[Rfam]
RNA: Bacterial RNase P class A
Organism: Candidatus Blochmanniella floridana
RNA sequence: GAAGCUGACCAGGCAAUCGCUGCUUUUCUAGACUGUUUUAUUUUUAUACUAUGAAAAUUGGAGUAUGUUGAUAGUUAGUAAGUAUAGAGAAAGGAGAGGAAAGUCCGGGCUCCGUAGGACAAAGUGCCAGGUAACUCCUGGGAGAUGUGAAUCUACGACAAGUGCAACAGAAAAAAACCGCUAAAUGUUAUUAUGAAAUUAAUAAUAAAAGUAAGGGUGAAAAGGUGUGGUAAGAGCGCACCAUACAAUUGGUAACAAUUUGUAGUAAUGUAAACUCCACUUGGAGCAAGGCUAAAUAGAAGUUCUAUAGUAUAGUCCGUACUGAACUUGGGUAAGCCGCUGUAGUUUUUAUGUGAAUAAAAACAUAGAUGAAUGAUUGCCCGUGACAGAACCCGGCUUAUAGGUCAGCUUAUAUA
Numbered sequence: 001g002a003a004g005c006u007g008a009c010c011a012g013g014c015a016a017u018c019g020c021u022g023c024u025u026u027u028c029u030a031g032a033c034u035g036u037u038u039u040a041u042u043u044u045u046a047u048a049c050u051a052u053g054a055a056a057a058u059u060g061g062a063g064u065a066u067g068u069u070g071a072u073a074g075u076u077a078g079u080a081a082g083u084a085u086a087g088a089g090a091a092a093g094g095a096g097a098g099g100a101a102a103g104u105c106c107g108g109g110c111u112c113c114g115u116a117g118g119a120c121a122a123a124g125u126g127c128c129a130g131g132u133a134a135c136u137c138c139u140g141g142g143a144g145a146u147g148u149g150a151a152u153c154u155a156c157g158a159c160a161a162g163u164g165c166a167a168c169a170g171a172a173a174a175a176a177a178c179c180g181c182u183a184a185a186u187g188u189u190a191u192u193a194u195g196a197a198a199u200u201a202a203u204a205a206u207a208a209a210a211g212u213a214a215g216g217g218u219g220a221a222a223a224g225g226u227g228u229g230g231u232a233a234g235a236g237c238g239c240a241c242c243a244u245a246c247a248a249u250u251g252g253u254a255a256c257a258a259u260u261u262g263u264a265g266u267a268a269u270g271u272a273a274a275c276u277c278c279a280c281u282u283g284g285a286g287c288a289a290g291g292c293u294a295a296a297u298a299g300a301a302g303u304u305c306u307a308u309a310g311u312a313u314a315g316u317c318c319g320u321a322c323u324g325a326a327c328u329u330g331g332g333u334a335a336g337c338c339g340c341u342g343u344a345g346u347u348u349u350u351a352u353g354u355g356a357a358u359a360a361a362a363a364c365a366u367a368g369a370u371g372a373a374u375g376a377u378u379g380c381c382c383g384u385g386a387c388a389g390a391a392c393c394c395g396g397c398u399u400a401u402a403g404g405u406c407a408g409c410u411u412a413u414a415u416a
Base pairs, nucleotide, nucleotide: 002411003410004409005408006407007406008405009404010403011401012381013380014379015378016377017376018375020096021095023093024092025091026090027089101399102398103397105396106395107394108393109392110286111285112284113283117318118317119316120315122282123281124280125279126278127141128140129139130138131137142156143154144153145152146151157277158276162275163274164271165270166269178216179215180212181211182210186207187206188205189204190203191202192201193200224242225241226240227239228238229237243266244264245263246262247261248260249258250257251256290338291337292336293335300329301328302327303326304325305324309323310322311321312320313319345364346363347362348361349360350359351358352357